[Rfam]
Record summary:
This 79-nucleotide sequence from Dicrurus megarhynchus belongs to the Rfam family "Small nucleolar RNA SNORD74". The family's RNA type in Rfam is C/D-box small nucleolar RNA. On this family, see Galardi et al., Mol Cell Biol 2002: "Purified box C/D snoRNPs are able to reproduce site-specific 2'-O-methylation of target RNA in vitro". Lineage of the source: Eukaryota > Opisthokonta > Gnathostomata > Teleostomi > Dicrurus. The family has 22 seed sequences and 929 matches in Rfam 15.1.
RNA sequence: AUGCUCUGCACAUGAUGAAAACUAUGUUGGUAGGGACAUCUGACAGGGUGAUGAAUGCCAACAUAUCUGAGCUGGGCUU
Numbered sequence: 001a002u003g004c005u006c007u008g009c010a011c012a013u014g015a016u017g018a019a020a021a022c023u024a025u026g027u028u029g030g031u032a033g034g035g036a037c038a039u040c041u042g043a044c045a046g047g048g049u050g051a052u053g054a055a056u057g058c059c060a061a062c063a064u065a066u067c068u069g070a071g072c073u074g075g076g077c078u079u
Stems, first nucleotide, its partner, number of pairs: 001079001003077003